The record is a 247-nucleotide sequence from Trinickia symbiotica, which matches "Burkholderia sRNA Bp1_Cand871_SIPHT" in Rfam. The literature on the family includes a 2012 paper in BMC Genomics by Khoo et al., "Computational discovery and RT-PCR validation of novel Burkholderia conserved and Burkholderia pseudomallei unique sRNAs". It is annotated as a small RNA. Gene Ontology term of the family: bacterial biofilm matrix. It scores 156 bits against the family's covariance model.
[Rfam]
RNA sequence: UCGCCCACAAUGCCCCUCAACGGUUUCAACACAGAUGUCGUUCAUCGCCGAAUUCGCAACACAUUGAAGAGCAUCAAAAAAUCGGCGAGCAACAACGAAUUCCUCUCUGGGAACAUCUCUGUUGGAGCCGUUGCAGGUGCGGUUGUCGUUGGUGUUAUUGAUCGGCACCUGUCAGUUCCUUCAUUGGUCUCCUCGCGCUAACCCCGUAGCGUGUGGUUUUUAGCGGGCCGCUGGCCCGCUUUUUUUU
Numbered sequence: 001u002c003g004c005c006c007a008c009a010a011u012g013c014c015c016c017u018c019a020a021c022g023g024u025u026u027c028a029a030c031a032c033a034g035a036u037g038u039c040g041u042u043c044a045u046c047g048c049c050g051a052a053u054u055c056g057c058a059a060c061a062c063a064u065u066g067a068a069g070a071g072c073a074u075c076a077a078a079a080a081a082u083c084g085g086c087g088a089g090c091a092a093c094a095a096c097g098a099a100u101u102c103c104u105c106u107c108u109g110g111g112a113a114c115a116u117c118u119c120u121g122u123u124g125g126a127g128c129c130g131u132u133g134c135a136g137g138u139g140c141g142g143u144u145g146u147c148g149u150u151g152g153u154g155u156u157a158u159u160g161a162u163c164g165g166c167a168c169c170u171g172u173c174a175g176u177u178c179c180u181u182c183a184u185u186g187g188u189c190u191c192c193u194c195g196c197g198c199u200a201a202c203c204c205c206g207u208a209g210c211g212u213g214u215g216g217u218u219u220u221u222a223g224c225g226g227g228c229c230g231c232u233g234g235c236c237c238g239c240u241u242u243u244u245u246u247u
Stems, first nucleotide, its partner, number of pairs: 005187003019132013033118006041095001045087001048084001050082001101112004134171007191216002194213007222240008